Rfam assigns this 35-nucleotide RNA sequence to the family "DUF805b RNA". Its Rfam clan is "DUF805 clan". By type it is a cis-regulatory element. Rfam's curators put it in the seed alignment.
[Rfam]
RNA sequence: AAAGAGAUCCCCGAAAAUCUAUAAAAGAGUAGGGA
Numbered sequence: 001a002a003a004g005a006g007a008u009c010c011c012c013g014a015a016a017a018u019c020u021a022u023a024a025a026a027g028a029g030u031a032g033g034g035a
Base pairs, nucleotide, nucleotide: 003020004019005018010034011033012032